[Rfam]
RNA sequence: AGGGCGACCGGGUCGAUCGCCCGGGUGACCGUCAGGAAGUCGCGGAUGACGAUGCCGUGGCGGUUCUC
Numbered sequence: 001a002g003g004g005c006g007a008c009c010g011g012g013u014c015g016a017u018c019g020c021c022c023g024g025g026u027g028a029c030c031g032u033c034a035g036g037a038a039g040u041c042g043c044g045g046a047u048g049a050c051g052a053u054g055c056c057g058u059g060g061c062g063g064u065u066c067u068c
Base pairs, nucleotide, nucleotide: 005062006061008059011030012029013028016026017025018024035056036055038053040052041051042050
A member of the RNA family "ASdes TB sRNA" from Actinomadura macrotermitis, 68 nucleotides long.
It scores 69 bits against the family's covariance model.
NCBI's taxonomy places the organism under Bacteria, Bacillati, Actinomycetota, Streptosporangiales, Actinomadura.
A reference for the family is Arnvig and Young (2009), "Identification of small RNAs in Mycobacterium tuberculosis", Mol Microbiol.
Rfam classes the family as a small RNA.